A member of the RNA family "Small nucleolar RNA SNORA13" from Acipenser ruthenus, 135 nucleotides long. Rfam links the family to the GO terms nucleolus and RNA processing. NCBI's taxonomy places the organism under Eukaryota, Opisthokonta, Teleostomi, Euteleostomi, Acipenser. ACA13 is a member of the H/ACA class of snoRNA that guide the sites of modification of uridines to pseudouridines. It scores 73 bits against the family's covariance model. Its Rfam clan is "SNORA13 clan".
RNA sequence: UGCCUUUGUGUUGCCCGUUCAUGUUUCCUUUUAUGAAUGGAGUGUCAAAAAAGGCAGACAGAAAGUCCUUUUGCUGUGUUUAUCUUGCUUUGGGACUAUACACCCUCUGCUUUAUUCAUGGCAGAAGAAACACAC
Numbered sequence: 001u002g003c004c005u006u007u008g009u010g011u012u013g014c015c016c017g018u019u020c021a022u023g024u025u026u027c028c029u030u031u032u033a034u035g036a037a038u039g040g041a042g043u044g045u046c047a048a049a050a051a052a053g054g055c056a057g058a059c060a061g062a063a064a065g066u067c068c069u070u071u072u073g074c075u076g077u078g079u080u081u082a083u084c085u086u087g088c089u090u091u092g093g094g095a096c097u098a099u100a101c102a103c104c105c106u107c108u109g110c111u112u113u114a115u116u117c118a119u120g121g122c123a124g125a126a127g128a129a130a131c132a133c134a135c
Base pairs, nucleotide, nucleotide: 002055003054004053005052006051007050009047010046012044013043014042016039017038018037019036020035021034022033023032068127069126070125071123073122074121075120076119077118085114087112088109093104094103